Shown here is a 209-nucleotide RNA, a member of the family "Streptomyces RNA 1601".
The literature on the family includes a 2011 paper in RNA Biol by Vockenhuber et al., "Deep sequencing-based identification of small non-coding RNAs in Streptomyces coelicolor".
It is annotated as a small RNA.
It scores 181 bits against the family's covariance model.

RNA sequence: AACGACCGGCUGGACACCUCUGUGCCCGGCCCACAAGUGGAGGCUCCGUACUCCCACCCGACCACCCUCACGGGCGGCGGGUCACCGGUCAGGCGGUCCCCAUCGUUCCGUACGGACGAUGGAACCGCCCGAAUGCGCGCCCCGCGGCCACCGCGGCGGUGCUCCGGUUUCCGUGGAGCCCCGCCUGUGUACCGUCCGGGGCGUUUUUC
Numbered sequence: 001a002a003c004g005a006c007c008g009g010c011u012g013g014a015c016a017c018c019u020c021u022g023u024g025c026c027c028g029g030c031c032c033a034c035a036a037g038u039g040g041a042g043g044c045u046c047c048g049u050a051c052u053c054c055c056a057c058c059c060g061a062c063c064a065c066c067c068u069c070a071c072g073g074g075c076g077g078c079g080g081g082u083c084a085c086c087g088g089u090c091a092g093g094c095g096g097u098c099c100c101c102a103u104c105g106u107u108c109c110g111u112a113c114g115g116a117c118g119a120u121g122g123a124a125c126c127g128c129c130c131g132a133a134u135g136c137g138c139g140c141c142c143c144g145c146g147g148c149c150a151c152c153g154c155g156g157c158g159g160u161g162c163u164c165c166g167g168u169u170u171c172c173g174u175g176g177a178g179c180c181c182c183g184c185c186u187g188u189g190u191a192c193c194g195u196c197c198g199g200g201g202c203g204u205u206u207u208u209c
Stems, first nucleotide, its partner, number of pairs: 004090006012027002028083005034060001037057004041052002062077002065074003092129005100122008139202006145194003152189003155185005161179005